[Rfam]
RNA sequence: UUGCGAACUAUUCUCGCCUGUUCGACCAGUUCGUGGUCAGAUCAGGGCUAGUCGUUCGCUAGAUUGACACCAGCACGAGAGCUAGCAGACCUGAUGCUCACCCCGGGUCUGUUCUCACCCUGCACCCGCUGGUCACAGUC
Numbered sequence: 001u002u003g004c005g006a007a008c009u010a011u012u013c014u015c016g017c018c019u020g021u022u023c024g025a026c027c028a029g030u031u032c033g034u035g036g037u038c039a040g041a042u043c044a045g046g047g048c049u050a051g052u053c054g055u056u057c058g059c060u061a062g063a064u065u066g067a068c069a070c071c072a073g074c075a076c077g078a079g080a081g082c083u084a085g086c087a088g089a090c091c092u093g094a095u096g097c098u099c100a101c102c103c104c105g106g107g108u109c110u111g112u113u114c115u116c117a118c119c120c121u122g123c124a125c126c127c128g129c130u131g132g133u134c135a136c137a138g139u140c
Stems, first nucleotide, its partner, number of pairs: 003059003017046004022041002024038004069133006085112009